The family of this 76-nucleotide sequence from Morus notabilis is "Small nucleolar RNA R66". From the family's description: snoR66 is a C/D box small nucleolar RNA, which acts as a methylation guide for 18S ribosomal RNA in plants. snoR66 has been alternatively named snoZ269 in rice. Rfam 15.1 lists 584 matches to the family in 219 species. For this family Rfam cites "The high diversity of snoRNAs in plants: identification and comparative study of 120 snoRNA genes from Oryza sativa" (Chen et al., Nucleic Acids Res, 2003). The base pairs follow the family's consensus structure, which was predicted with PFOLD. The match comes from Rfam's covariance-model search (49 bits). Rfam links the family to the GO terms nucleolus and RNA processing.
RNA sequence: UCCUAUGAUGGCAUGGAAUCUUUGAGACCUGAUUCUCUGAUUUGAUGAAAACUACAAGCAUUAAAAAAAAAAAGAU
Numbered sequence: 001u002c003c004u005a006u007g008a009u010g011g012c013a014u015g016g017a018a019u020c021u022u023u024g025a026g027a028c029c030u031g032a033u034u035c036u037c038u039g040a041u042u043u044g045a046u047g048a049a050a051a052c053u054a055c056a057a058g059c060a061u062u063a064a065a066a067a068a069a070a071a072a073a074g075a076u
Base pairs, nucleotide, nucleotide: 001075002074032043033040034039